[Rfam]
A member of the RNA family "Purine riboswitch aptamer" from Cohnella thailandensis, 102 nucleotides long. The source organism's lineage runs through Bacteria, Bacillati, Bacillota, Caryophanales and Cohnella. Gene Ontology term of the family: purine nucleobase biosynthetic process. The match comes from Rfam's covariance-model search (77 bits). Pairs were carried over by alignment from the consensus structure, which is taken from published work.
RNA sequence: CCGUAAAAUAGCUGAUUUGCUCGUAUAUAGUCGGGGAUACGGCCCGAUCGUCUCUACCCGGAAACCUUAAAUUUUCGGACUACGAGCCCUAGUUCUGGAUGA
Dot-bracket structure: ..................(((((((....((((((.......)))))).........(((((((.......)))))))..)))))))...............
Numbered sequence: 001c002c003g004u005a006a007a008a009u010a011g012c013u014g015a016u017u018u019g020c021u022c023g024u025a026u027a028u029a030g031u032c033g034g035g036g037a038u039a040c041g042g043c044c045c046g047a048u049c050g051u052c053u054c055u056a057c058c059c060g061g062a063a064a065c066c067u068u069a070a071a072u073u074u075u076c077g078g079a080c081u082a083c084g085a086g087c088c089c090u091a092g093u094u095c096u097g098g099a100u101g102a
Stems, first nucleotide, its partner, number of pairs: 019087007030048006058078007